Overview: The record is an 84-nucleotide RNA from Equus caballus, which matches "mir-500 microRNA precursor family" in Rfam. Gene Ontology terms of the family: miRNA-mediated post-transcriptional gene silencing and RISC complex. The literature on the family includes a 2010 paper in Genes Dev by Chiang et al., "Mammalian microRNAs: experimental evaluation of novel and previously annotated genes".

RNA sequence: GCUCCCCCUCUCUAAUCCUUGCUACCUGGGUGAGAGUGCUUUCUGAAUGCAAUGCACCUGGGCAAGGAUUCCGAGAGGGAGAGU
Numbered sequence: 001g002c003u004c005c006c007c008c009u010c011u012c013u014a015a016u017c018c019u020u021g022c023u024a025c026c027u028g029g030g031u032g033a034g035a036g037u038g039c040u041u042u043c044u045g046a047a048u049g050c051a052a053u054g055c056a057c058c059u060g061g062g063c064a065a066g067g068a069u070u071c072c073g074a075g076a077g078g079g080a081g082a083g084u
Stems, first nucleotide, its partner, number of pairs: 014070007025062008037051003